A member of the RNA family "Small nucleolar RNA snoR145" from Cynara cardunculus, 147 nucleotides long.
The base pairs follow the family's consensus structure, which was predicted with mfold.
Gene Ontology terms of the family: nucleolus and RNA processing.
The organism belongs to Cynara cardunculus subsp. cardunculus, within Eukaryota.
The literature on the family includes a 2009 paper in Nucleic Acids Res by Chen and Wu, "Mining small RNA sequencing data: a new approach to identify small nucleolar RNAs in Arabidopsis".
Rfam classes the family as an H/ACA-box small nucleolar RNA.
RNA sequence: AAUCGAAGGUCCCAGCAGGGAGGUUGAUUUACUCUAAACGAGUCCUCUCUAACACAUUAAUUUACCUUCGAAAAUAUAUUUGCCGAAUCGUAGGAUGCUCCGAAAGUUUCCAUUUUGGUGAUAUCUUGAAAUCUCGGCUAAAUUGUU
Numbered sequence: 001a002a003u004c005g006a007a008g009g010u011c012c013c014a015g016c017a018g019g020g021a022g023g024u025u026g027a028u029u030u031a032c033u034c035u036a037a038a039c040g041a042g043u044c045c046u047c048u049c050u051a052a053c054a055c056a057u058u059a060a061u062u063u064a065c066c067u068u069c070g071a072a073a074a075u076a077u078a079u080u081u082g083c084c085g086a087a088u089c090g091u092a093g094g095a096u097g098c099u100c101c102g103a104a105a106g107u108u109u110c111c112a113u114u115u116u117g118g119u120g121a122u123a124u125c126u127u128g129a130a131a132u133c134u135c136g137g138c139u140a141a142a143u144u145g146u147u
Base pairs, nucleotide, nucleotide: 003071004070005069006068007067008066009065011020012019013018026048032042033041034040082138083137084136085135086134094125095124097122098120100118101117102116103115104114